[Rfam]
RNA: ZMP/ZTP riboswitch aptamer (pfl RNA motif)
Organism: Paenibacillus phyllosphaerae
RNA sequence: ACGUCGACGCGUAACUGGCGCUGCAUGGGGUACCAUGAGGGAGCGCGUCGAGGAAUCGGCCGUACGCCUGGGCAAAGGUA
Numbered sequence: 001a002c003g004u005c006g007a008c009g010c011g012u013a014a015c016u017g018g019c020g021c022u023g024c025a026u027g028g029g030g031u032a033c034c035a036u037g038a039g040g041g042a043g044c045g046c047g048u049c050g051a052g053g054a055a056u057c058g059g060c061c062g063u064a065c066g067c068c069u070g071g072g073c074a075a076a077g078g079u080a
Stems, first nucleotide, its partner, number of pairs: 004051009015040002017068004025036004059073003